[Rfam]
RNA sequence: AAAGCAGGCUGCAAUUGCAGUGCUUCAUUCUGUGGGAGCGCUGCCAUUGUCCUGCUGAGAGCAACUCUGUGAGUGCUGUCUGUGGUUUCACCUGUACAGUGGUGAAACUUUGCACUUCACAUGUACAAGU
Dot-bracket structure: ..((((((.........(((((((((........))))))))).......))))))...........((((.(.(.(......(((((((((........)))))))))....).).).)))).......
RNA: Small nucleolar RNA SNORA69